[Rfam]
This 103-nucleotide RNA sequence from Flavobacterium noncentrifugens belongs to the Rfam family "Flavo-1 RNA".
Rfam classes the family as a small RNA.
Lineage of the source: Bacteria > Pseudomonadati > Bacteroidota > Flavobacteriales > Flavobacterium.

RNA sequence: CCCUAGCCCUGAUAGAAGCGCAAAUCCUUUUUUUUUAAUUUAAGAUUCCUCUCGCUUCCUCGAGGUAUCUUAAAAAAGAUUGCAGCGGAUAGCAGGUUCCCGG
Numbered sequence: 001c002c003c004u005a006g007c008c009c010u011g012a013u014a015g016a017a018g019c020g021c022a023a024a025u026c027c028u029u030u031u032u033u034u035u036u037a038a039u040u041u042a043a044g045a046u047u048c049c050u051c052u053c054g055c056u057u058c059c060u061c062g063a064g065g066u067a068u069c070u071u072a073a074a075a076a077a078g079a080u081u082g083c084a085g086c087g088g089a090u091a092g093c094a095g096g097u098u099c100c101c102g103g
Base pairs, nucleotide, nucleotide: 009095010094011093013091014090018086019085023081024080025079026078029076030075031074032073033072